Shown here is a 74-nucleotide RNA from Megalops atlanticus, a member of the family "mir-551 microRNA precursor family". For this family Rfam cites "Conservation of small RNA pathways in platypus" (Murchison et al., Genome Res, 2008). Gene Ontology terms of the family: RISC complex and miRNA-mediated post-transcriptional gene silencing.

RNA sequence: CGACCUCCGAAGUCAGGCGUGGGUGUAGCCUGUUCCCAAGCAGCCAGGCGACCCACUCUUGAUUUCAGAGGUCG
Number, nucleotide and partner (000 for none) at each position: 001c000002g073003a072004c071005c070006u069007c068008c000009g066010a065011a064012g063013u062014c061015a000016g059017g058018c000019g000020u000021g054022g053023g052024u051025g000026u000027a000028g049029c048030c047031u046032g000033u000034u000035c000036c000037c000038a000039a000040g000041c000042a000043g000044c000045c000046a031047g030048g029049c028050g000051a024052c023053c022054c021055a000056c000057u000058c017059u016060u000061g014062a013063u012064u011065u010066c009067a000068g007069a006070g005071g004072u003073c002074g000
A search with the family's covariance model found it, with a score of 65 bits.